[Rfam]
RNA sequence: GGGGUGUGUGUUAGACUUACCUCUACGUGGUUCACCCUGGGCAACGUAUUAUUCAUACGGCAAAAAAGUCUAU
Numbered sequence: 001g002g003g004g005u006g007u008g009u010g011u012u013a014g015a016c017u018u019a020c021c022u023c024u025a026c027g028u029g030g031u032u033c034a035c036c037c038u039g040g041g042c043a044a045c046g047u048a049u050u051a052u053u054c055a056u057a058c059g060g061c062a063a064a065a066a067a068g069u070c071u072a073u
Stems, first nucleotide, its partner, number of pairs: 001038006019031003045059005
Description:
A member of the RNA family "HDV ribozyme from F. prausnitzii" from Rodentolepis nana, 73 nucleotides long. NCBI's taxonomy places the organism under Eukaryota, Spiralia, Lophotrochozoa, Cestoda, Rodentolepis. The base pairs follow the family's consensus structure, which is taken from published work.